The family of this 207-nucleotide sequence from Echinops telfairi is "Small nucleolar RNA SNORA73 family".
Taxonomically the source falls in Echinops (Eukaryota, Bilateria, Deuterostomia, Amniota).
The family is grouped with related families in Rfam's "snR30-U17 clan".
The base pairs follow the family's consensus structure, which is taken from published work.
Rfam classes the family as an H/ACA-box small nucleolar RNA.
About the family: U17 (SNORA73A and SNORA73B) also known as E1 belongs to the H/ACA class of small nucleolar RNAs (snoRNAs). Vertebrate U17 is intron-encoded and ranges in length from 200-230 nucleotides, longer than most snoRNAs. It is one of the most abundant snoRNAs in human cells and is essential for the cleavage of pre-rRNA within the 5' external transcribed spacer (ETS).
RNA sequence: CCAACGUGGAUACUCCCGGGAGGUCACUCUCCCCGGGCUCUGUCCAGGUGGCAUGGAGGAGCACAGGGCUCAGUGCCCCGUGAUGUACAGUCCUUUCCCACAACGUUGGAGAUCAAGCCGGGCCUGGAGCCUGCGCCUGCAUAUUCCUACAGCUUCUCAGAGUCCUGUGGACAAUGACUGAGGAGACAAACCAUGCAGGAAACAUGU
Numbered sequence: 001c002c003a004a005c006g007u008g009g010a011u012a013c014u015c016c017c018g019g020g021a022g023g024u025c026a027c028u029c030u031c032c033c034c035g036g037g038c039u040c041u042g043u044c045c046a047g048g049u050g051g052c053a054u055g056g057a058g059g060a061g062c063a064c065a066g067g068g069c070u071c072a073g074u075g076c077c078c079c080g081u082g083a084u085g086u087a088c089a090g091u092c093c094u095u096u097c098c099c100a101c102a103a104c105g106u107u108g109g110a111g112a113u114c115a116a117g118c119c120g121g122g123c124c125u126g127g128a129g130c131c132u133g134c135g136c137c138u139g140c141a142u143a144u145u146c147c148u149a150c151a152g153c154u155u156c157u158c159a160g161a162g163u164c165c166u167g168u169g170g171a172c173a174a175u176g177a178c179u180g181a182g183g184a185g186a187c188a189a190a191c192c193a194u195g196c197a198g199g200a201a202a203c204a205u206g207u
Base pairs, nucleotide, nucleotide: 001109002108003107004106005105006104007103008045009044010043011042012041015037016036017035019030020029021028022027048101049100050099051098057094058093059092060091061088063086064085065084068081069080136199137198138197139196140195141194142193153185154184155183156182157181158180162172163171164170165169